RNA sequence: ACGGCCCUCGUGAACAAUCCCACCUGCGAGUGUACCCACUCGGUCUCCAGUGUGAACCUGAGAGCGCCCAGA
Numbered sequence: 001a002c003g004g005c006c007c008u009c010g011u012g013a014a015c016a017a018u019c020c021c022a023c024c025u026g027c028g029a030g031u032g033u034a035c036c037c038a039c040u041c042g043g044u045c046u047c048c049a050g051u052g053u054g055a056a057c058c059u060g061a062g063a064g065c066g067c068c069c070a071g072a
Base pairs, nucleotide, nucleotide: 003068004067005066007064008063009062021054022053023052024050025049028041029040030039031038032037
RNA: Trypanosomatid snoRNA TB11Cs3H1
Organism: Trypanosoma vivax